[Rfam]
RNA sequence: CUAUUUGUCUAUGAUAGAUCUUCAUCUAGUUAUGAUAGAUUCACACCAGAUAACUUAAAAUCAUAUGUUAUCACAUGGCCAGCUAAAUCACACAUCAUGAGAAAAAAUAAAUCAACAUAUGGAAAUACCUCAUCAGAUA
Numbered sequence: 001c002u003a004u005u006u007g008u009c010u011a012u013g014a015u016a017g018a019u020c021u022u023c024a025u026c027u028a029g030u031u032a033u034g035a036u037a038g039a040u041u042c043a044c045a046c047c048a049g050a051u052a053a054c055u056u057a058a059a060a061u062c063a064u065a066u067g068u069u070a071u072c073a074c075a076u077g078g079c080c081a082g083c084u085a086a087a088u089c090a091c092a093c094a095u096c097a098u099g100a101g102a103a104a105a106a107a108u109a110a111a112u113c114a115a116c117a118u119a120u121g122g123a124a125a126u127a128c129c130u131c132a133u134c135a136g137a138u139a
Base pairs, nucleotide, nucleotide: 004137005136006135007134008132014126015125019121024118025117027114029112030111031110
Dot-bracket structure: ...(((((.....((...(....((.(.(((..............................................................................))).)..))..)...)).....).))))..

Rfam assigns this 139-nucleotide sequence from Populus deltoides to the family "MIR480 microRNA precursor family". The base pairs follow the family's consensus structure, which was predicted with WAR. It scores 71 bits against the family's covariance model.